[Rfam]
RNA sequence: AGCCUAUUUUGCCCAGGCGGAGCUCGACCGCCGCCUCAAGCCAUGAAGGCAUUCGAUGAAAACCGCGAGUUCUACAGGGUCGAGCCGAUCUGCAAGGUAUUGUCGAUCGCCCCA
Number, nucleotide and partner (000 for none) at each position: 001a000002g000003c000004c000005u000006a000007u000008u000009u000010u000011g000012c000013c000014c000015a000016g032017g031018c030019g029020g028021a000022g000023c000024u000025c000026g000027a000028c020029c019030g018031c017032c016033g000034c000035c000036u000037c000038a000039a000040g000041c000042c000043a000044u000045g000046a000047a000048g000049g000050c000051a000052u000053u000054c000055g000056a000057u000058g000059a000060a000061a000062a000063c000064c000065g000066c000067g000068a000069g000070u000071u000072c000073u000074a000075c000076a000077g112078g111079g110080u000081c000082g000083a000084g000085c000086c109087g108088a000089u106090c105091u000092g103093c102094a101095a100096g000097g000098u000099a000100u095101u094102g093103u092104c000105g090106a089107u000108c087109g086110c079111c078112c077113c000114a000
ALIL pseudoknot: a 114-nucleotide sequence from Azotobacter chroococcum. The family's consensus secondary structure is taken from published work.